Shown here is a 67-nucleotide RNA from Thauera aminoaromatica, a member of the family "Betaproteobacteria toxic small RNA".
Taxonomically the source falls in Thauera (Bacteria, Pseudomonadati, Betaproteobacteria, Rhodocyclales).
It scores 58 bits against the family's covariance model.
For this family Rfam cites "Identification of small RNAs abundant in Burkholderia cenocepacia biofilms reveal putative regulators with a potential role in carbon and iron metabolism" (Sass et al., Sci Rep, 2017).
Rfam describes the family as follows. Overexpression in amino aid rich medium attenuates growth, suggesting role in repressing amino acid intake and metabolism.

Nucleotides: 067
Base pairs, nucleotide, nucleotide: 008031009030010029011028012027013025014024035060036059037058038057039056040055041054042053
Number, partner (000 for none) and nucleotide at each position: 001000u002000g003000u004000c005000u006000c007000c008031u009030c010029c011028a012027c013025c014024c015000u016000c017000c018000u019000c020000c021000u022000u023000u024014g025013g026000u027012g028011u029010g030009g031008a032000u033000u034000u035060g036059c037058c038057c039056g040055g041054g042053c043000c044000u045000c046000g047000c048000a049000a050000g051000a052000c053042g054041c055040c056039c057038g058037g059036g060035c061000u062000u063000u064000u065000u066000c067000u